[Rfam]
RNA sequence: CCAUGUCGGGUCUUGGCACUGGGAGAAUUCACAGGAGUUAUAUCACAAACCCGUGAAUUUCCUGAUGCCUUAGCUCGAUGUGG
Numbered sequence: 001c002c003a004u005g006u007c008g009g010g011u012c013u014u015g016g017c018a019c020u021g022g023g024a025g026a027a028u029u030c031a032c033a034g035g036a037g038u039u040a041u042a043u044c045a046c047a048a049a050c051c052c053g054u055g056a057a058u059u060u061c062c063u064g065a066u067g068c069c070u071u072a073g074c075u076c077g078a079u080g081u082g083g
Base pairs, nucleotide, nucleotide: 003081004080005079006078007077008076009075010074015069016068017067018066020064021063022062023060025059026058029056030055031054032053034051
Dot-bracket structure: ..((((((((....((((.((((.((..((((.(................).)))).))).))).))))....))))))))..
Background
The record is an 83-nucleotide RNA from Papilio xuthus, which matches "mir-263 microRNA precursor family" in Rfam. The base pairs follow the family's consensus structure, which was predicted with RNAalifold. On this family, see Li et al., BMC Genomics 2009: "Direct sequencing and expression analysis of a large number of miRNAs in Aedes aegypti and a multi-species survey of novel mosquito miRNAs". The source organism's lineage runs through Eukaryota, Opisthokonta, Insecta, Lepidoptera and Papilio.